[Rfam]
RNA sequence: UCACGCCGUGCGAGAGAGUUGACUGCCCCGGCAGUCAACACCGAAGGAGCAAGCCUCCCCGCCAAUCUCUCAGGUGCCAUGUAUCGCGCGGCUGGG
Number, nucleotide and partner (000 for none) at each position: 001u000002c000003a000004c000005g000006c091007c090008g089009u088010g087011c086012g085013a084014g000015a000016g000017a000018g000019u038020u037021g036022a035023c000024u000025g000026c000027c000028c000029c000030g000031g000032c000033a000034g000035u022036c021037a020038a019039c000040a075041c074042c073043g071044a070045a000046g000047g069048a068049g067050c000051a000052a000053g062054c061055c000056u000057c000058c000059c000060c000061g054062c053063c000064a000065a000066u000067c049068u048069c047070u044071c043072a000073g042074g041075u040076g000077c000078c000079a000080u000081g000082u000083a000084u013085c012086g011087c010088g009089c008090g007091g006092c000093u000094g000095g000096g000
RNA: Glycine riboswitch aptamer